Shown here is a 77-nucleotide sequence from Chlorocebus sabaeus, a member of the family "mir-1278 microRNA precursor family". The family's consensus secondary structure was predicted with RNAalifold. Gene Ontology terms of the family: miRNA-mediated post-transcriptional gene silencing and RISC complex.
[Rfam]
RNA sequence: UUUGCUCAUAGAUGAUAUGCAUAGUACUCCUGGAACUCAUUAAGUUGGUAGAACCAUGCAUGUCAUCUAUGAGCAAA
Numbered sequence: 001u002u003u004g005c006u007c008a009u010a011g012a013u014g015a016u017a018u019g020c021a022u023a024g025u026a027c028u029c030c031u032g033g034a035a036c037u038c039a040u041u042a043a044g045u046u047g048g049u050a051g052a053a054c055c056a057u058g059c060a061u062g063u064c065a066u067c068u069a070u071g072a073g074c075a076a077a
Stems, first nucleotide, its partner, number of pairs: 001077022024054002027051002030048003035045003